Notes:
The record is a 355-nucleotide RNA sequence from Aquisalimonas asiatica, which matches "Bacterial RNase P class A" in Rfam. The family's RNA type in Rfam is ribozyme. It scores 326 bits against the family's covariance model. Ribonuclease P (RNase P) is a ubiquitous endoribonuclease, found in archaea, bacteria and eukarya as well as chloroplasts and mitochondria. Its best characterised activity is the generation of mature 5'-ends of tRNAs by cleaving the 5'-leader elements of precursor-tRNAs. Cellular RNase Ps are ribonucleoproteins. RNA from bacterial RNase Ps retains its catalytic activity in the absence of the protein subunit, i.e. it is a ribozyme.

RNA sequence: GGAGUUGGCCAGACAGUCGCUGCCAGCCAACAGCUGGCGGAGGAAAGUCCGGGCUCCACAGGGCAGGGUGCCAGGUAACGCCUGGGAGGCGCGAGCCUACGGAAAGUGCAGCAGAGAGCAGACCGCCGAUGGCCCUUCGCGGGCACAGGCAAGGGUGAAACGGUGCGGUAAGAGCGCACCGCGCGCGUGGUAACACGUCGUGGCACGGCAAACCCCACCCGGAGCAAGACCAAAUAGGGGGGCGAUGGUGUGGCCCGCACCGCUCCCGGGUAGGUCGCUUGAGGCGUGCGGUGACGCGCGUCCCAGAGGAAUGACUGUCCACUGACAGAACCCGGCUUAUCGGCCGACUCCUUUC
Numbered sequence: 001g002g003a004g005u006u007g008g009c010c011a012g013a014c015a016g017u018c019g020c021u022g023c024c025a026g027c028c029a030a031c032a033g034c035u036g037g038c039g040g041a042g043g044a045a046a047g048u049c050c051g052g053g054c055u056c057c058a059c060a061g062g063g064c065a066g067g068g069u070g071c072c073a074g075g076u077a078a079c080g081c082c083u084g085g086g087a088g089g090c091g092c093g094a095g096c097c098u099a100c101g102g103a104a105a106g107u108g109c110a111g112c113a114g115a116g117a118g119c120a121g122a123c124c125g126c127c128g129a130u131g132g133c134c135c136u137u138c139g140c141g142g143g144c145a146c147a148g149g150c151a152a153g154g155g156u157g158a159a160a161c162g163g164u165g166c167g168g169u170a171a172g173a174g175c176g177c178a179c180c181g182c183g184c185g186c187g188u189g190g191u192a193a194c195a196c197g198u199c200g201u202g203g204c205a206c207g208g209c210a211a212a213c214c215c216c217a218c219c220c221g222g223a224g225c226a227a228g229a230c231c232a233a234a235u236a237g238g239g240g241g242g243c244g245a246u247g248g249u250g251u252g253g254c255c256c257g258c259a260c261c262g263c264u265c266c267c268g269g270g271u272a273g274g275u276c277g278c279u280u281g282a283g284g285c286g287u288g289c290g291g292u293g294a295c296g297c298g299c300g301u302c303c304c305a306g307a308g309g310a311a312u313g314a315c316u317g318u319c320c321a322c323u324g325a326c327a328g329a330a331c332c333c334g335g336c337u338u339a340u341c342g343g344c345c346g347a348c349u350c351c352u353u354u355c
Stems, first nucleotide, its partner, number of pairs: 001351010011340001012319007020040008045338003049335005054224004061256004066220005071085005086100001087098004101215002106213002108209002123154002125150003130145002133142001162180006181204001182202004187196003228276004238267006247261005283302008